[Rfam]
RNA sequence: GCUGAGUUGUGUAGCGCCAACUUGUGACCCGAGUGGGAGCAUCAAAGUGAUGGAACAUGGCUAUGAUUUGUUGAGCUGGGUUGGUAGUUGCAAUAUGCUGGCCUGCCCACUCCAAGUUGAGAGUUGGACCAUGCGACUUGGGCGAAGGCUUGGGUCUAGUGGUUCCUAGACGAAAGGGCACUGCGUGAGGCUGGUUUCACAGAGCAGCGAACACCUUUGGCUCUUGACAGUGGAGGGAUAACAGGCUGUAGCACUUUCAUCCCAUUAAGCUCGGCGAACCUAGCCUAUGAACCAUCACUUUU
Numbered sequence: 001g002c003u004g005a006g007u008u009g010u011g012u013a014g015c016g017c018c019a020a021c022u023u024g025u026g027a028c029c030c031g032a033g034u035g036g037g038a039g040c041a042u043c044a045a046a047g048u049g050a051u052g053g054a055a056c057a058u059g060g061c062u063a064u065g066a067u068u069u070g071u072u073g074a075g076c077u078g079g080g081u082u083g084g085u086a087g088u089u090g091c092a093a094u095a096u097g098c099u100g101g102c103c104u105g106c107c108c109a110c111u112c113c114a115a116g117u118u119g120a121g122a123g124u125u126g127g128a129c130c131a132u133g134c135g136a137c138u139u140g141g142g143c144g145a146a147g148g149c150u151u152g153g154g155u156c157u158a159g160u161g162g163u164u165c166c167u168a169g170a171c172g173a174a175a176g177g178g179c180a181c182u183g184c185g186u187g188a189g190g191c192u193g194g195u196u197u198c199a200c201a202g203a204g205c206a207g208c209g210a211a212c213a214c215c216u217u218u219g220g221c222u223c224u225u226g227a228c229a230g231u232g233g234a235g236g237g238a239u240a241a242c243a244g245g246c247u248g249u250a251g252c253a254c255u256u257u258c259a260u261c262c263c264a265u266u267a268a269g270c271u272c273g274g275c276g277a278a279c280c281u282a283g284c285c286u287a288u289g290a291a292c293c294a295u296c297a298c299u300u301u302u
Stems, first nucleotide, its partner, number of pairs: 001040003004023006028037003044301010056289005061283003065279001068277010078263003082259003086255001089253002099248007107237002110235005116228009126165007135156009173218005182211001184209003191202003
Plant signal recognition particle RNA: a 302-nucleotide RNA sequence from Trifolium subterraneum. By type it is a non-coding RNA gene.